[Rfam]
RNA sequence: AACAGAAUGAUGAGCUGCUUGUAGAGAUAUAAGUGGCCUAUAAGCCGAGUGUUAACAUGUUAUAAUAAAGCAUGCGAUGACCACAACUCAGAAAGCGAUACUAUUAUGCUCUGACUGUU
Number, nucleotide and partner (000 for none) at each position: 001a119002a118003c117004a116005g115006a000007a000008u000009g000010a000011u000012g000013a000014g000015c000016u000017g000018c000019u000020u000021g000022u000023a000024g000025a000026g000027a000028u000029a000030u000031a000032a000033g000034u000035g000036g000037c000038c000039u000040a000041u000042a000043a000044g000045c000046c000047g000048a000049g000050u000051g000052u000053u000054a000055a000056c000057a000058u000059g000060u000061u000062a000063u000064a000065a000066u000067a000068a000069a000070g000071c000072a000073u000074g000075c000076g000077a000078u000079g000080a000081c000082c000083a000084c000085a000086a000087c000088u000089c000090a000091g000092a000093a000094a000095g000096c000097g000098a000099u000100a000101c000102u000103a000104u000105u000106a000107u000108g000109c000110u000111c000112u000113g000114a000115c005116u004117g003118u002119u001
This 119-nucleotide RNA sequence from Caenorhabditis angaria belongs to the Rfam family "Caenorhabditis snoRNA ceN69". Its family is annotated with nucleolus and RNA processing in the Gene Ontology. For this family Rfam cites "Systematic identification of non-coding RNA 2,2,7-trimethylguanosine cap structures in Caenorhabditis elegans" (Jia et al., BMC Mol Biol, 2007). Taxonomically the source falls in Caenorhabditis (Eukaryota, Bilateria, Rhabditida, Rhabditina). Rfam 15.1 lists 11 matches to the family in 10 species. The family's RNA type in Rfam is C/D-box small nucleolar RNA.